Plastid-psbA-1 3UTR RNA: a 111-nucleotide RNA from Tetracentron sinense. About the family: Plastid psbA-1 is a non-coding RNA (ncRNA) present in plastids. A reference for the family is Richter et al. (2023), "Retrograde signaling in plants: A critical review focusing on the GUN pathway and beyond", Plant Commun. Lineage of the source: Eukaryota > Embryophyta > Trochodendrales > Trochodendraceae > Tetracentron. The family's consensus secondary structure was predicted with LocARNA.

RNA sequence: AGAGUGUUCCAUUAUACUGGAUAAGAUUUCGUUCUUAGUCUAUACGAGUUGUUGAAGUUACAGGAACAAUAAGAAAAUUGUUGUUCUAUCAAGAGGCUUGGUAUUGCUCCU
Numbered sequence: 001a002g003a004g005u006g007u008u009c010c011a012u013u014a015u016a017c018u019g020g021a022u023a024a025g026a027u028u029u030c031g032u033u034c035u036u037a038g039u040c041u042a043u044a045c046g047a048g049u050u051g052u053u054g055a056a057g058u059u060a061c062a063g064g065a066a067c068a069a070u071a072a073g074a075a076a077a078u079u080g081u082u083g084u085u086c087u088a089u090c091a092a093g094a095g096g097c098u099u100g101g102u103a104u105u106g107c108u109c110c111u
Base pairs, nucleotide, nucleotide: 008021009020010019011018062111063110064109065108067106068105069104070103071102074099075098078095079094081092082091